[Rfam]
RNA sequence: GUUGUUUACUCUCCCUCAAGGGCUUCUAACCUUGGUCAUCAAAUUAUGGCAGACUAGAAGCACUUGGGGGAGUGCGAACAA
Number, nucleotide and partner (000 for none) at each position: 001g000002u000003u000004g000005u000006u077007u076008a000009c074010u000011c072012u071013c070014c069015c068016u000017c066018a065019a064020g063021g000022g061023c060024u059025u058026c057027u000028a000029a000030c000031c000032u000033u000034g000035g000036u000037c000038a000039u000040c000041a000042a000043a000044u000045u000046a000047u000048g000049g000050c000051a000052g000053a000054c000055u000056a000057g026058a025059a024060g023061c022062a000063c020064u019065u018066g017067g000068g015069g014070g013071a012072g011073u000074g009075c000076g007077a006078a000079c000080a000081a000
Rfam assigns this 81-nucleotide RNA sequence from Kingdonia uniflora to the family "MIR473 microRNA precursor family". It scores 54 bits against the family's covariance model. Rfam links the family to the GO terms miRNA-mediated post-transcriptional gene silencing and RISC complex. NCBI's taxonomy places the organism under Eukaryota, Streptophyta, Euphyllophyta, Ranunculales, Kingdonia. For this family Rfam cites "Novel and mechanical stress-responsive MicroRNAs in Populus trichocarpa that are absent from Arabidopsis" (Lu et al., Plant Cell, 2005). The family's consensus secondary structure was predicted with WAR.